[Rfam]
RNA sequence: GGACUGCGAUGAUACAGAAGGUUGCCAGCUAGACUGGGUGAAUUUCUGUUGAGAAAUGUCCGUUCUUGAAUCGGGCGACGA
Dot-bracket structure: .............(((..(((...((((.....)))).....))).))).......((((...(((......))).)))).
Numbered sequence: 001g002g003a004c005u006g007c008g009a010u011g012a013u014a015c016a017g018a019a020g021g022u023u024g025c026c027a028g029c030u031a032g033a034c035u036g037g038g039u040g041a042a043u044u045u046c047u048g049u050u051g052a053g054a055a056a057u058g059u060c061c062g063u064u065c066u067u068g069a070a071u072c073g074g075g076c077g078a079c080g081a
Stems, first nucleotide, its partner, number of pairs: 014049003019045003025037004057080004064075003